Notes: Shown here is a 73-nucleotide sequence from Xenopus tropicalis, a member of the family "mir-17 microRNA precursor family". About the family: This family represents the microRNA (miRNA) precursor mir-17, family, which includes mir-20, mir-91, and mir-103. miRNAs are transcribed as ~70nt precursors (modelled here) and subsequently processed by the Dicer enzyme to give a ~22nt product. In this case the mature sequence comes from the 3' arm of the precursor. The extents of the hairpin precursors are not generally known and are estimated based on hairpin prediction. The family has 234 seed sequences and 4,687 matches in Rfam 15.1.

RNA sequence: AUGGGCUUCAAAGUGCUGUUCGUGCAGGUAGCUUAAUAACAGACCUACUGCAUGGGCGGCACUUCCCAAGCCC
Numbered sequence: 001a002u003g004g005g006c007u008u009c010a011a012a013g014u015g016c017u018g019u020u021c022g023u024g025c026a027g028g029u030a031g032c033u034u035a036a037u038a039a040c041a042g043a044c045c046u047a048c049u050g051c052a053u054g055g056g057c058g059g060c061a062c063u064u065c066c067c068a069a070g071c072c073c
Base pairs, nucleotide, nucleotide: 003073004072005071007069008068011064012063013062014061015060016059017058018057019056020055021054022053023052024051025050027049028048029047030046031045
Dot-bracket structure: ..(((.((..(((((((((((((((.(((((.............))))))))))))))))))))...)).)))